[Rfam]
RNA sequence: AAGCACAGCUCUUUUAGAAUUUUUUCUGGCUUUCUGAUUUUGAUCAGAAAACCCAA
Number, nucleotide and partner (000 for none) at each position: 001a000002a000003g000004c000005a000006c000007a000008g000009c000010u000011c000012u000013u000014u000015u000016a000017g000018a000019a000020u000021u000022u000023u000024u000025u000026c000027u000028g053029g052030c000031u050032u049033u048034c047035u046036g045037a044038u043039u000040u000041u000042g000043a038044u037045c036046a035047g034048a033049a032050a031051a000052c029053c028054c000055a000056a000
RNA: U7 small nuclear RNA